Rfam assigns this 110-nucleotide RNA from Oryza sativa to the family "MIR1861 microRNA precursor family". The family has 13 seed sequences and 210 matches in Rfam 15.1.

[Rfam]
RNA sequence: AUAUUCUUAGGCCCGAUCUUGUGGCAGGAGCUGAGUAGCUGGUGAACUCGCUUUAUGUUGUUCAUUCACUCGCUACACGGUUCCUGUCCCAAGAUCGAGUCUGUGAAUAU
Numbered sequence: 001a002u003a004u005u006c007u008u009a010g011g012c013c014c015g016a017u018c019u020u021g022u023g024g025c026a027g028g029a030g031c032u033g034a035g036u037a038g039c040u041g042g043u044g045a046a047c048u049c050g051c052u053u054u055a056u057g058u059u060g061u062u063c064a065u066u067c068a069c070u071c072g073c074u075a076c077a078c079g080g081u082u083c084c085u086g087u088c089c090c091a092a093g094a095u096c097g098a099g100u101c102u103g104u105g106a107a108u109a110u
Base pairs, nucleotide, nucleotide: 001110002109003108004107005106006105008103009102010101011100012099014097015096016095017094018093019092020091021090023088024087025086026085027084028083029082030081031080032079033078035076036075